[Rfam]
RNA sequence: UCCGAUAAAUGGCAAACUUGUUGAAAAGCAAGGACGCAAAACCACGGGUCUAACGCAAUUACGCUAUGAUAGCCGGGUCGCCGAA
Numbered sequence: 001u002c003c004g005a006u007a008a009a010u011g012g013c014a015a016a017c018u019u020g021u022u023g024a025a026a027a028g029c030a031a032g033g034a035c036g037c038a039a040a041a042c043c044a045c046g047g048g049u050c051u052a053a054c055g056c057a058a059u060u061a062c063g064c065u066a067u068g069a070u071a072g073c074c075g076g077g078u079c080g081c082c083g084a085a
Stems, first nucleotide, its partner, number of pairs: 012037002017032006041078003045075003048070003055064002
The family of this 85-nucleotide sequence from Sinanaerobacter chloroacetimidivorans is "c-di-GMP-I riboswitch aptamer". Lineage of the source: Bacteria > Clostridia > Peptostreptococcales > Anaerovoracaceae > Sinanaerobacter. Its family is annotated with cyclic-di-GMP binding in the Gene Ontology. It scores 80 bits against the family's covariance model. GEMM was predicted in a large-scale screen for bacterial structured RNA regulatory elements.